[Rfam]
RNA sequence: GGCUGAUUUGGAUGCAGUUGUGUUAUAACAAUUGAUCACAACCUGUUGCAAAUUUAUUUGUUCCUUCUCCAUGCCCACUAUUUCACUUGACUAUCCUUAA
Numbered sequence: 001g002g003c004u005g006a007u008u009u010g011g012a013u014g015c016a017g018u019u020g021u022g023u024u025a026u027a028a029c030a031a032u033u034g035a036u037c038a039c040a041a042c043c044u045g046u047u048g049c050a051a052a053u054u055u056a057u058u059u060g061u062u063c064c065u066u067c068u069c070c071a072u073g074c075c076c077a078c079u080a081u082u083u084c085a086c087u088u089g090a091c092u093a094u095c096c097u098u099a100a
Stems, first nucleotide, its partner, number of pairs: 001096002004093002007090002010088002014084001016079003020075001022074001027062003031058001
Shown here is a 100-nucleotide RNA sequence from Carlito syrichta, a member of the family "Y RNA". From the family's description: Y RNAs are components of the Ro ribonucleoprotein particle (Ro RNP), in association with Ro60 and La proteins. The Y RNAs and Ro60 and La proteins are well conserved, but the function of the Ro RNP is not known. In humans the RNA component can be one of four small RNAs -- hY1, hY3, hY4 and hY5. These small RNAs are predicted to fold into a conserved secondary structure containing three stem structures. Rfam classes the family as a non-coding RNA gene. The family's consensus secondary structure is taken from published work. Taxonomically the source falls in Carlito (Eukaryota, Opisthokonta, Deuterostomia, Haplorrhini). For this family Rfam cites "Conserved features of Y RNAs: a comparison of experimentally derived secondary structures" (Teunissen et al., Nucleic Acids Res, 2000). The match comes from Rfam's covariance-model search (43 bits).